A member of the RNA family "c-di-GMP-II-GAG riboswitch aptamer", 81 nucleotides long. Gene Ontology terms of the family: cyclic-di-GMP binding and regulation of gene expression. The family is grouped with related families in Rfam's "c-di-GMP_II riboswitch clan". Pairs were carried over by alignment from the consensus structure, which is taken from published work. The sequence is in the family's curated seed alignment. For this family Rfam cites "Bioinformatic analysis of riboswitch structures uncovers variant classes with altered ligand specificity" (Weinberg et al., Proc Natl Acad Sci U S A, 2017).
[Rfam]
Nucleotides: 081
Stems, first nucleotide, its partner, number of pairs: 009077003013060003022054008037072002039068005
Number, partner (000 for none) and nucleotide at each position: 001000a002000u003000c004000g005000c006000c007000a008000u009077c010076g011075g012000a013060c014059g015058c016000g017000a018000u019000g020000a021000c022054u023053u024052g025051c026050a027049g028048a029047c030000c031000u032000c033000a034000c035000c036000u037072g038071g039068g040067c041066a042065c043064c044000u045000u046000g047029g048028u049027c050026u051025g052024c053023g054022a055000c056000g057000a058015g059014c060013g061000a062000g063000u064043g065042g066041u067040g068039c069000g070000a071038c072037c073000g074000g075011c076010u077009g078000u079000g080000a081000a